[Rfam]
RNA sequence: UAUAUUUGCCGCCUGAUUACCAAAGUGGUAGUCUGUACAUAAAAAUCAUUUAAAAUAAUAUUGGCAUG
Number, nucleotide and partner (000 for none) at each position: 001u000002a000003u000004a000005u000006u000007u000008g000009c000010c000011g000012c000013c000014u000015g033016a032017u031018u030019a029020c028021c027022a000023a000024a000025g000026u000027g021028g020029u019030a018031g017032u016033c015034u000035g000036u000037a000038c000039a000040u000041a000042a000043a000044a000045a000046u000047c000048a000049u000050u000051u000052a000053a000054a000055a000056u000057a000058a000059u000060a000061u000062u000063g000064g000065c000066a000067u000068g000
Annotation:
A member of the RNA family "S15-Flavobacteria ribosomal protein leader", 68 nucleotides long. By type it is a cis-regulatory leader.